Description: 7SK RNA: a 330-nucleotide RNA sequence from Equus asinus. The family is grouped with related families in Rfam's "7SK clan". Pairs were carried over by alignment from the consensus structure, which is taken from published work. About the family: 7SK was discovered as an abundant small nuclear RNA in the mid-70s but a possible function has only recently been suggested. Two independent studies have found that 7SK RNA binds the CDK9/cyclin T complex (known as elongation factor P-TEFb). Taxonomically the source falls in Equus (Eukaryota, Metazoa, Sarcopterygii, Eutheria). By type it is a non-coding RNA gene.
RNA sequence: GGAUGUGAGGGUGAUAUGGCUGUGACAUCUGUCACUCAUUGAUCACCAGGGUUCAUUGGGCUGAUCCGGCUGGCUAGGCGGGUUUCCCCUUCCUCCCCCACUGUUCCAUGUGUGUCCCUCUUGAAGCGGUGCGCUAGGUCGAAGAAGACAACCUUCCCCAACAGAGGAGGACCGUUCUUGGGUCAAGGUUAUACGAGUAGCUGCGCUGCCCUGCUAGAACCUCCAAACAAGCUCUCAAGGUCCAUUUGUAGGAAAACAUAGGGUAGUCAAGCUUCCAAGACUCCAGGCACAUCCAAAUGAGGCACUGCAUGUGGCAGCCUGCCUUUCUUU
Numbered sequence: 001g002g003a004u005g006u007g008a009g010g011g012u013g014a015u016a017u018g019g020c021u022g023u024g025a026c027a028u029c030u031g032u033c034a035c036u037c038a039u040u041g042a043u044c045a046c047c048a049g050g051g052u053u054c055a056u057u058g059g060g061c062u063g064a065u066c067c068g069g070c071u072g073g074c075u076a077g078g079c080g081g082g083u084u085u086c087c088c089c090u091u092c093c094u095c096c097c098c099c100a101c102u103g104u105u106c107c108a109u110g111u112g113u114g115u116c117c118c119u120c121u122u123g124a125a126g127c128g129g130u131g132c133g134c135u136a137g138g139u140c141g142a143a144g145a146a147g148a149c150a151a152c153c154u155u156c157c158c159c160a161a162c163a164g165a166g167g168a169g170g171a172c173c174g175u176u177c178u179u180g181g182g183u184c185a186a187g188g189u190u191a192u193a194c195g196a197g198u199a200g201c202u203g204c205g206c207u208g209c210c211c212u213g214c215u216a217g218a219a220c221c222u223c224c225a226a227a228c229a230a231g232c233u234c235u236c237a238a239g240g241u242c243c244a245u246u247u248g249u250a251g252g253a254a255a256a257c258a259u260a261g262g263g264u265a266g267u268c269a270a271g272c273u274u275c276c277a278a279g280a281c282u283c284c285a286g287g288c289a290c291a292u293c294c295a296a297a298u299g300a301g302g303c304a305c306u307g308c309a310u311g312u313g314g315c316a317g318c319c320u321g322c323c324u325u326u327c328u329u330u
Stems, first nucleotide, its partner, number of pairs: 001107003005101003009097003013092002018089002024086002027083007035073001036069002041066004046060002115170002117167004121138002124135001126134002139161001141159001147156002200272003206266002209263005222253003227249005295330003299325005305317004